RNA: c-di-GMP-I riboswitch aptamer
Organism: Saccharibacillus sacchari
RNA sequence: CUCAUAUUUUGGCAAACUUAUUGAAAAAUAAGGACGCAAAGCUAUAGGGACCAAAUCCGUCGGGGUAGGUCAGCCAGUUGCAUUC
Numbered sequence: 001c002u003c004a005u006a007u008u009u010u011g012g013c014a015a016a017c018u019u020a021u022u023g024a025a026a027a028a029u030a031a032g033g034a035c036g037c038a039a040a041g042c043u044a045u046a047g048g049g050a051c052c053a054a055a056u057c058c059g060u061c062g063g064g065g066u067a068g069g070u071c072a073g074c075c076a077g078u079u080g081c082a083u084u085c
Base pairs, nucleotide, nucleotide: 012037013036017032018031019030020029021028022027040079041078042077043076047075048074049071050070051069056065057064058063